[Rfam]
RNA: Small nucleolar RNA Z122
RNA sequence: UAUUGGAAAUGAUGAUAAGAUAUAUCGAUAUUAUCAUAGGCAUUUGCAAUGCUGAUCAAAAAUAUUUGCACGUCAGUCUGAUCCAAGC
Numbered sequence: 001u002a003u004u005g006g007a008a009a010u011g012a013u014g015a016u017a018a019g020a021u022a023u024a025u026c027g028a029u030a031u032u033a034u035c036a037u038a039g040g041c042a043u044u045u046g047c048a049a050u051g052c053u054g055a056u057c058a059a060a061a062a063u064a065u066u067u068g069c070a071c072g073u074c075a076g077u078c079u080g081a082u083c084c085a086a087g088c
Stems, first nucleotide, its partner, number of pairs: 003086005